[Rfam]
RNA sequence: UAAGACAAGUAGAGGCACCCGCUUCUCGCCUGUUCGACACAGUACGUAGUUGCCAGGUUACAAAUGAUUCUGAUUAAAGAUGACAGGAUAUGUGUGGGUGCAUUAUGUACCGACGCUUUUUUUAUGUC
Numbered sequence: 001u002a003a004g005a006c007a008a009g010u011a012g013a014g015g016c017a018c019c020c021g022c023u024u025c026u027c028g029c030c031u032g033u034u035c036g037a038c039a040c041a042g043u044a045c046g047u048a049g050u051u052g053c054c055a056g057g058u059u060a061c062a063a064a065u066g067a068u069u070c071u072g073a074u075u076a077a078a079g080a081u082g083a084c085a086g087g088a089u090a091u092g093u094g095u096g097g098g099u100g101c102a103u104u105a106u107g108u109a110c111c112g113a114c115g116c117u118u119u120u121u122u123u124a125u126g127u128c
Stems, first nucleotide, its partner, number of pairs: 011026006028058003036051003039047002093115003097111006
Rfam assigns this 128-nucleotide RNA sequence from Streptohalobacillus salinus to the family "Ribosomal protein L20 leader". Taxonomically the source falls in Streptohalobacillus (Bacteria, Bacillati, Bacillota, Bacilli). The family's RNA type in Rfam is cis-regulatory leader. The base pairs follow the family's consensus structure, which was predicted with CMfinder.